[Rfam]
RNA sequence: AUGGAGGUUCGACAAGGGUGCUUGGCCCUACUACCCGUGAACCCACCCAAGGAGAGACGUGGUUGUAGAGUCACGCACCUCUGCCGAGCCUCCUG
Numbered sequence: 001a002u003g004g005a006g007g008u009u010c011g012a013c014a015a016g017g018g019u020g021c022u023u024g025g026c027c028c029u030a031c032u033a034c035c036c037g038u039g040a041a042c043c044c045a046c047c048c049a050a051g052g053a054g055a056g057a058c059g060u061g062g063u064u065g066u067a068g069a070g071u072c073a074c075g076c077a078c079c080u081c082u083g084c085c086g087a088g089c090c091u092c093c094u095g
Stems, first nucleotide, its partner, number of pairs: 003093004009087003016080006023073004028068004033063003
MIR1223 microRNA precursor family: a 95-nucleotide sequence from Physcomitrium patens. The literature on the family includes a 2007 paper in Plant Cell by Axtell et al., "Common functions for diverse small RNAs of land plants". Rfam's curators put it in the seed alignment. The family's consensus secondary structure was predicted with RNAalifold.